[Rfam]
RNA sequence: GGGUUCAGACAGGGGAGCACGAGCGCGUGCUGAGAGUGCGGACUUCUCCGCAGACCCUUAGGAACCUGCCCCGGUUAGGACCGGCGAAGGGAGUCACGAUGAGGUGUGC
Numbered sequence: 001g002g003g004u005u006c007a008g009a010c011a012g013g014g015g016a017g018c019a020c021g022a023g024c025g026c027g028u029g030c031u032g033a034g035a036g037u038g039c040g041g042a043c044u045u046c047u048c049c050g051c052a053g054a055c056c057c058u059u060a061g062g063a064a065c066c067u068g069c070c071c072c073g074g075u076u077a078g079g080a081c082c083g084g085c086g087a088a089g090g091g092a093g094u095c096a097c098g099a100u101g102a103g104g105u106g107u108g109c
Base pairs, nucleotide, nucleotide: 008095009094010093011059012058013057014056017030018029019028020027021026037052038051039050040049041048065090066089067088071084072083073082074081
Shown here is a 109-nucleotide RNA from Nocardioides dongxiaopingii, a member of the family "TPP riboswitch aptamer (THI element)". Rfam links the family to the GO term thiamine pyrophosphate binding.